[Rfam]
RNA: Small nucleolar RNA SNORA48
Organism: Propithecus coquereli
RNA sequence: UGUCCCCUGGCAAUGAGCAAAGAGACACCUCAUUGGUGGUGUUGCUCUUAUAUCAGUCAGGGGCAGAGCAGAUGGACAGUCCUUUGUUUAGCCUAGCUUGUUGCCUGGAUUGGCAGCCAGAGAUGUUUCAUGCCUGGUGCACACCA
Numbered sequence: 001u002g003u004c005c006c007c008u009g010g011c012a013a014u015g016a017g018c019a020a021a022g023a024g025a026c027a028c029c030u031c032a033u034u035g036g037u038g039g040u041g042u043u044g045c046u047c048u049u050a051u052a053u054c055a056g057u058c059a060g061g062g063g064c065a066g067a068g069c070a071g072a073u074g075g076a077c078a079g080u081c082c083u084u085u086g087u088u089u090a091g092c093c094u095a096g097c098u099u100g101u102u103g104c105c106u107g108g109a110u111u112g113g114c115a116g117c118c119a120g121a122g123a124u125g126u127u128u129c130a131u132g133c134c135u136g137g138u139g140c141a142c143a144c145c146a
Stems, first nucleotide, its partner, number of pairs: 001065004006061004014055003020049003024043006085141003089137001100134001102132001106130003111125002114122001